[Rfam]
RNA sequence: CUGCGAUGCUGGCAUUUCUUUGGACACGUUUGGAUUAAUCGUGACAAUUACUUUCGGAGCAGC
Numbered sequence: 001c002u003g004c005g006a007u008g009c010u011g012g013c014a015u016u017u018c019u020u021u022g023g024a025c026a027c028g029u030u031u032g033g034a035u036u037a038a039u040c041g042u043g044a045c046a047a048u049u050a051c052u053u054u055c056g057g058a059g060c061a062g063c
Base pairs, nucleotide, nucleotide: 001062002061003060004059
Dot-bracket structure: ((((......................................................)))).